Background:
The family of this 95-nucleotide RNA sequence from Vibrio aquimaris is "t44 RNA". Rfam describes the family as follows. This family consists of a number of bacterial RNA genes of between 135 and 170 bases in length. The t44 gene has been identified in several species of enteric bacteria but homologs have also been identified in Pseudomonas and Coxiella species. It is annotated as a small RNA.

RNA sequence: AAACAUUUAUCUUUAAAUCACACACAAUCCGUCACAUAUUCCGGGGUGCUGGGCAAUGAGCUUGGUCGGAGUUAUGGGGAUUGUGGAGGCCUAAC
Numbered sequence: 001a002a003a004c005a006u007u008u009a010u011c012u013u014u015a016a017a018u019c020a021c022a023c024a025c026a027a028u029c030c031g032u033c034a035c036a037u038a039u040u041c042c043g044g045g046g047u048g049c050u051g052g053g054c055a056a057u058g059a060g061c062u063u064g065g066u067c068g069g070a071g072u073u074a075u076g077g078g079g080a081u082u083g084u085g086g087a088g089g090c091c092u093a094a095c
Stems, first nucleotide, its partner, number of pairs: 023085008035076004040070004048066005
Annotation:
The source organism's lineage runs through Bacteria, Pseudomonadati, Vibrionales, Vibrionaceae and Vibrio.